[Rfam]
ALIL pseudoknot: a 107-nucleotide RNA from Thioclava sp. SK-1. Its family is annotated with positive regulation of translational frameshifting in the Gene Ontology. The base pairs follow the family's consensus structure, which is taken from published work.

Nucleotides: 107
Stems, first nucleotide, its partner, number of pairs: 016032005070107002072103001079102002082099002085096004
Number, partner (000 for none) and nucleotide at each position: 001000c002000g003000c004000a005000u006000a007000u008000u009000u010000u011000g012000c013000g014000a015000u016032g017031g018030c019029g020028g021000a022000g023000c024000u025000c026000g027000a028020c029019c030018g031017c032016c033000g034000g035000u036000c037000g038000a039000c040000g041000u042000g043000a044000u045000g046000g047000c048000g049000g050000g051000u052000u053000u054000c055000a056000u057000c058000g059000c060000a061000g062000c063000c064000c065000a066000c067000a068000c069000g070107g071106g072103g073000u074000c075000g076000a077000g078000c079102c080101g081000a082099u083098c084000c085096g086095a087094c088093c089000c090000u091000g092000c093088g094087g095086u096085c097000c098083g099082g100000c101080c102079g103072c104000a105000u106071u107070c